[Rfam]
RNA sequence: CUUGGAGGUAGGGUCCCUCAGCUUGGAUUGCGAGAAGGUGCAGGCCAGGCAGAGUGACCCCACCGGUGCAUG
Numbered sequence: 001c002u003u004g005g006a007g008g009u010a011g012g013g014u015c016c017c018u019c020a021g022c023u024u025g026g027a028u029u030g031c032g033a034g035a036a037g038g039u040g041c042a043g044g045c046c047a048g049g050c051a052g053a054g055u056g057a058c059c060c061c062a063c064c065g066g067u068g069c070a071u072g
Base pairs, nucleotide, nucleotide: 003070004069007064008063011060012059013058014057015056017054018053019052021050022049023048025046026045028043029042030041031040032039
Dot-bracket structure: ..((..((..(((((.(((.(((.((.(((((......))))).)).))).))).)))))..))....))..
The family of this 72-nucleotide RNA sequence from Pipistrellus kuhlii is "mir-9193 microRNA precursor family". The base pairs follow the family's consensus structure, which was predicted with RNAalifold. Rfam 15.1 lists 6,008 matches to the family in 8 species. NCBI's taxonomy places the organism under Eukaryota, Eumetazoa, Chordata, Sarcopterygii, Pipistrellus.